[Rfam]
RNA sequence: UUGUUGCACUAGGGGAGCCUUAAAGGCUGAGACGGACAAAACUCUGGACCCUCAAAACCUGAUCUGGUUAAUACCAGCGUAGGGAAGUGGCUAAUUAUCUUU
Numbered sequence: 001u002u003g004u005u006g007c008a009c010u011a012g013g014g015g016a017g018c019c020u021u022a023a024a025g026g027c028u029g030a031g032a033c034g035g036a037c038a039a040a041a042c043u044c045u046g047g048a049c050c051c052u053c054a055a056a057a058c059c060u061g062a063u064c065u066g067g068u069u070a071a072u073a074c075c076a077g078c079g080u081a082g083g084g085a086a087g088u089g090g091c092u093a094a095u096u097a098u099c100u101u102u
Stems, first nucleotide, its partner, number of pairs: 007089004011052004017027004034045003058083004064077004